This 50-nucleotide RNA sequence from Streptomyces inusitatus belongs to the Rfam family "raiA-hairpin RNA".
Rfam classes the family as a small RNA.
NCBI's taxonomy places the organism under Bacteria, Actinomycetota, Actinomycetes, Streptomycetaceae, Streptomyces.

RNA sequence: CGCCUAGUCCGAGACCUCGGCACAUUCACCGGGGUCUGGUGCAAGAGGGA
Numbered sequence: 001c002g003c004c005u006a007g008u009c010c011g012a013g014a015c016c017u018c019g020g021c022a023c024a025u026u027c028a029c030c031g032g033g034g035u036c037u038g039g040u041g042c043a044a045g046a047g048g049g050a
Stems, first nucleotide, its partner, number of pairs: 013036008

Pairs were carried over by alignment from the consensus structure, which is taken from published work.